[Rfam]
Nucleotides: 087
Stems, first nucleotide, its partner, number of pairs: 034067001039062002041058007
Number, partner (000 for none) and nucleotide at each position: 001000u002000a003000a004000a005000c006000c007000c008000u009000a010000a011000a012000a013000a014000a015000c016000a017000a018000a019000a020000g021000c022000c023000c024000u025000a026000c027000c028000u029000c030000u031000c032000u033000u034067u035000u036000a037000u038000c039062a040061u041058u042057a043056c044055g045054g046053c047052u048000c049000c050000u051000u052047g053046g054045c055044c056043g057042u058041g059000c060000c061040a062039u063000u064000u065000a066000u067034a068000a069000u070000a071000a072000g073000g074000c075000g076000g077000u078000u079000a080000a081000g082000u083000g084000u085000u086000u087000a
The family of this 87-nucleotide RNA from Anaerobacillus alkaliphilus is "BsrC". The family's RNA type in Rfam is small RNA. For this family Rfam cites "Novel small RNA-encoding genes in the intergenic regions of Bacillus subtilis" (Saito et al., Gene, 2008). About the family: The 301 nucleotide sequence from Kouji Nakamura has been trimmed to a highly conserved ~85 nucleotide long core to form this family. Pairs were carried over by alignment from the consensus structure, which was predicted with CMfinder.